RNA sequence: AAGACCUUUUAAAACAGUCCCGUGAGGCUGAAAAGGAAACGGAUCAACAUACCACAAGUAUGUCCAAAAUCCUUAUUCUCUCACGGAGAAUAAGGAUUUUUUUAU
Numbered sequence: 001a002a003g004a005c006c007u008u009u010u011a012a013a014a015c016a017g018u019c020c021c022g023u024g025a026g027g028c029u030g031a032a033a034a035g036g037a038a039a040c041g042g043a044u045c046a047a048c049a050u051a052c053c054a055c056a057a058g059u060a061u062g063u064c065c066a067a068a069a070u071c072c073u074u075a076u077u078c079u080c081u082c083a084c085g086g087a088g089a090a091u092a093a094g095g096a097u098u099u100u101u102u103u104a105u
Base pairs, nucleotide, nucleotide: 005036006035007034008033009032015030016029017028018027019026047063048062049061050060051059052058066100067099068098069097070096071095072094073093074092075091076090077089078088079087